[Rfam]
RNA sequence: CCGUGCUAGGUGGGAAGGUAGCGGUGUCUUGUAACUCGCAAUCCGCUCUAGCGAGACUGAACUCCUUCUCUGAGGCUGUUUAUAUGUAGGGUCUGACUUUUGCACGUAGUGUUGACGUCUGGGUCCUGCGCAAUGGGUAUCCAUGAAUCAGGUCAGGUCCGGAAGGAAGCAGCCUUAAGUGGACUUUUCUCAUGUGCCGCAGGGUAGCCUAGGCAGAGCUAACGACAGAGGUUCCGCUUAUGUAUAGCAGUCGAAGGAAGGUGCACGG
Numbered sequence: 001c002c003g004u005g006c007u008a009g010g011u012g013g014g015a016a017g018g019u020a021g022c023g024g025u026g027u028c029u030u031g032u033a034a035c036u037c038g039c040a041a042u043c044c045g046c047u048c049u050a051g052c053g054a055g056a057c058u059g060a061a062c063u064c065c066u067u068c069u070c071u072g073a074g075g076c077u078g079u080u081u082a083u084a085u086g087u088a089g090g091g092u093c094u095g096a097c098u099u100u101u102g103c104a105c106g107u108a109g110u111g112u113u114g115a116c117g118u119c120u121g122g123g124u125c126c127u128g129c130g131c132a133a134u135g136g137g138u139a140u141c142c143a144u145g146a147a148u149c150a151g152g153u154c155a156g157g158u159c160c161g162g163a164a165g166g167a168a169g170c171a172g173c174c175u176u177a178a179g180u181g182g183a184c185u186u187u188u189c190u191c192a193u194g195u196g197c198c199g200c201a202g203g204g205u206a207g208c209c210u211a212g213g214c215a216g217a218g219c220u221a222a223c224g225a226c227a228g229a230g231g232u233u234c235c236g237c238u239u240a241u242g243u244a245u246a247g248c249a250g251u252c253g254a255a256g257g258a259a260g261g262u263g264c265a266c267g268g
Stems, first nucleotide, its partner, number of pairs: 001268006009058003012030004017025001019023001035055005064261005070256002074252005081246010095232001098230005106223002108220003117214008125203006131194002134192004139185001140183005150175004158167003